The family of this 84-nucleotide RNA sequence from Nicotiana attenuata is "MIR6152 microRNA precursor family". Rfam 15.1 lists 5,807 matches to the family in 3 species. The base pairs follow the family's consensus structure, which was predicted with RNAalifold. A search with the family's covariance model found it, with a score of 68 bits. The organism belongs to Nicotiana, within Eukaryota.

RNA sequence: UGGACAGAUUAUUGUAUCCGACUUUAUUCACAGCGUGACACUGUUUUUAAACGGAAAGUGAAUCAAUUAGCAUAAUAGACUUCU
Numbered sequence: 001u002g003g004a005c006a007g008a009u010u011a012u013u014g015u016a017u018c019c020g021a022c023u024u025u026a027u028u029c030a031c032a033g034c035g036u037g038a039c040a041c042u043g044u045u046u047u048u049a050a051a052c053g054g055a056a057a058g059u060g061a062a063u064c065a066a067u068u069a070g071c072a073u074a075a076u077a078g079a080c081u082u083c084u
Stems, first nucleotide, its partner, number of pairs: 002083003009078007017070001020068002023065001026063006034053003037046002